[Rfam]
A member of the RNA family "Small nucleolar RNA SNORD22" from Tupaia belangeri, 127 nucleotides long. A search with the family's covariance model found it, with a score of 104 bits. For this family Rfam cites "Requirement for intron-encoded U22 small nucleolar RNA in 18S ribosomal RNA maturation" (Tycowski et al., Science, 1994). The base pairs follow the family's consensus structure, which was predicted with PFOLD.
RNA sequence: UCCUGAUCAGGAAAUGUUCACAAGUCUUACGUCCUGUCUUUGGUGCCAGAGCCUAUACGGGCGGCCCCUCUGGGGCUGACUUAGGGAAAAGAGGAAAGCUUGUUUCAGAAGGAACUGUCGGAGGGAU
Numbered sequence: 001u002c003c004u005g006a007u008c009a010g011g012a013a014a015u016g017u018u019c020a021c022a023a024g025u026c027u028u029a030c031g032u033c034c035u036g037u038c039u040u041u042g043g044u045g046c047c048a049g050a051g052c053c054u055a056u057a058c059g060g061g062c063g064g065c066c067c068c069u070c071u072g073g074g075g076c077u078g079a080c081u082u083a084g085g086g087a088a089a090a091g092a093g094g095a096a097a098g099c100u101u102g103u104u105u106c107a108g109a110a111g112g113a114a115c116u117g118u119c120g121g122a123g124g125g126a127u
Base pairs, nucleotide, nucleotide: 001126002125003124004123